[Rfam]
RNA sequence: UGUGAAGAAAGCCGGCGGCAAAAGAUUGGAGCUUAUGAACAAGAAAACCUUACGAGGCUGGCAGUAUCCUCUACAAGUCUGCGAGAUAAGACGAGUAGUGAUCCAGUGCCUACAUUUUAUGUUAAAGGACUGUUGGUAAAAGGUUAGGUUUCAAUUGGAGGAGUGGGGC
Dot-bracket structure: ..........(((.....(....(((((((((((...........((((((.....(((.(((((.(...((((..((((........))))..))))............................).))))).)))..)))))))))))))))))....).....)))
Description:
This 169-nucleotide RNA sequence from Psittacicella hinzii belongs to the Rfam family "Group II catalytic intron D1-D4-3". The base pairs follow the family's consensus structure.